The family of this 267-nucleotide RNA sequence from Molossus molossus is "Mason-Pfizer monkey virus packaging signal".

[Rfam]
RNA sequence: UGGCGCCCAAUGUGGGGCUCGAGAACGGGGGAUCCAGUGAAGGACACCUUUCAAGUGGCCGGCAGAAAGGAAAAGAAAAGAGGGACUGACGUGGGAACCUGCUGUGUCUGCAUCUCUCUGGUAAGUGAGCGGCGAUUAUGGGUCAAGAAAUGAGCCAACAUAAGAUGUUCGUUGAAGGACUAGGAAAGGCUCUCAAGGCACGAGGAGUAAAGGUAAAAAUUAAGCAUUUGUGCCAGUAUUUUGAUUAUAUUAAGGAAGUUUGCCCUU
Numbered sequence: 001u002g003g004c005g006c007c008c009a010a011u012g013u014g015g016g017g018c019u020c021g022a023g024a025a026c027g028g029g030g031g032a033u034c035c036a037g038u039g040a041a042g043g044a045c046a047c048c049u050u051u052c053a054a055g056u057g058g059c060c061g062g063c064a065g066a067a068a069g070g071a072a073a074a075g076a077a078a079a080g081a082g083g084g085a086c087u088g089a090c091g092u093g094g095g096a097a098c099c100u101g102c103u104g105u106g107u108c109u110g111c112a113u114c115u116c117u118c119u120g121g122u123a124a125g126u127g128a129g130c131g132g133c134g135a136u137u138a139u140g141g142g143u144c145a146a147g148a149a150a151u152g153a154g155c156c157a158a159c160a161u162a163a164g165a166u167g168u169u170c171g172u173u174g175a176a177g178g179a180c181u182a183g184g185a186a187a188g189g190c191u192c193u194c195a196a197g198g199c200a201c202g203a204g205g206a207g208u209a210a211a212g213g214u215a216a217a218a219a220u221u222a223a224g225c226a227u228u229u230g231u232g233c234c235a236g237u238a239u240u241u242u243g244a245u246u247a248u249a250u251u252a253a254g255g256a257a258g259u260u261u262g263c264c265c266u267u
Stems, first nucleotide, its partner, number of pairs: 006031003012026002036049001037047002079119003086110001090106005126145003130142001133140002152193001154190003201243005207237002211229004252267004
The family's consensus secondary structure was predicted with PFOLD. This family represents a group of sequences that are related to the Mason-Pfizer monkey virus (MPMV) packaging signal. The packaging signal is located in the 5' UTR and is required for specific RNA encapsidation.